[Rfam]
RNA: ffh sRNA
Organism: Limoniibacter endophyticus
RNA sequence: GAUCCCGGAAGUCAACAUCCGACAGCGCGAUGCGCCCUCGGAUGCCAAUUUG
Numbered sequence: 001g002a003u004c005c006c007g008g009a010a011g012u013c014a015a016c017a018u019c020c021g022a023c024a025g026c027g028c029g030a031u032g033c034g035c036c037c038u039c040g041g042a043u044g045c046c047a048a049u050u051u052g
Stems, first nucleotide, its partner, number of pairs: 016044007025035004